The record is a 281-nucleotide RNA from Tolypothrix bouteillei, which matches "HNH endonuclease-associated RNA and ORF (HEARO) RNA" in Rfam. Rfam classes the family as a non-coding RNA gene. Lineage of the source: Bacteria > Bacillati > Cyanobacteriota > Cyanophyceae > Tolypothrix bouteillei. The family's consensus secondary structure is taken from published work.

RNA sequence: GUCAGCACCCCGUACUAAAGUAACGGGGCUUCGUGCCCCAAGCUUUAGUUAGCUGACCCGCCUAAGUUCUUAACUGAACUACGUUAUUGGCAAGAGUUAAAGUCCUACCUGUGGAUGCAUUGCCAGUCCAUAGCUCUAGAAUUAGAUGGUUAAACAGCUUUACAAGGGGUAAGGCAGUGCUAUCUAAAUAGUGAGGCAAAUCUGAAGACGGGUUUCCCGUCGCAGGAUAUUGCCGAACCCGUAAGGGUACCGACCAAUAACUUUGGCAAGGCUAACAUUAC
Number, nucleotide and partner (000 for none) at each position: 001g057002u056003c055004a054005g053006c052007a050008c000009c028010c027011c025012g024013u000014a021015c020016u000017a000018a000019a000020g015021u014022a000023a000024c012025g011026g000027g010028g009029c042030u041031u040032c000033g000034u000035g000036c000037c000038c000039c000040a031041a030042g029043c000044u000045u000046u000047a000048g000049u000050u007051a000052g006053c005054u004055g003056a002057c001058c000059c000060g267061c266062c265063u000064a263065a080066g079067u078068u077069c076070u000071u000072a000073a000074c000075u000076g069077a068078a067079c066080u065081a000082c000083g261084u260085u259086a258087u257088u256089g255090g254091c000092a000093a000094g000095a000096g000097u000098u000099a000100a000101a000102g000103u140104c139105c000106u000107a000108c000109c133110u132111g131112u130113g129114g128115a127116u126117g000118c000119a000120u274121u000122g272123c271124c270125a000126g116127u115128c114129c113130a112131u111132a110133g109134c000135u000136c000137u000138a000139g104140a103141a000142u187143u186144a185145g184146a183147u182148g181149g180150u179151u000152a000153a000154a178155c177156a000157g175158c174159u173160u172161u171162a170163c169164a000165a000166g000167g000168g000169g163170u162171a161172a160173g159174g158175c157176a000177g155178u154179g150180c149181u148182a147183u146184c145185u144186a143187a142188a000189u000190a000191g000192u000193g000194a000195g000196g000197c000198a000199a000200a000201u000202c000203u000204g000205a000206a000207g000208a000209c000210g000211g000212g000213u000214u000215u000216c000217c000218c000219g000220u000221c000222g000223c000224a000225g000226g000227a000228u000229a000230u000231u000232g000233c000234c000235g000236a000237a000238c000239c000240c000241g000242u000243a000244a000245g000246g000247g000248u000249a000250c000251c000252g000253a000254c090255c089256a088257a087258u086259a085260a084261c083262u000263u064264u000265g062266g061267c060268a000269a000270g124271g123272c122273u000274a120275a000276c000277a000278u000279u000280a000281c000